[Rfam]
Nucleotides: 065
Stems, first nucleotide, its partner, number of pairs: 007059003011055004017050008027041005
Number, partner (000 for none) and nucleotide at each position: 001000u002000c003000a004000u005000c006000a007059g008058u009057c010000a011055g012054g013053c014052u015000c016000c017050u018049g019048g020047c021046u022045a023044g024043a025000g026000u027041c028040c029039a030038g031037c032000u033000c034000u035000c036000a037031g038030c039029u040028g041027g042000u043024u044023u045022u046021a047020g048019c049018c050017a051000a052014a053013g054012c055011c056000u057009g058008a059007c060000u061000a062000u063000a064000a065000g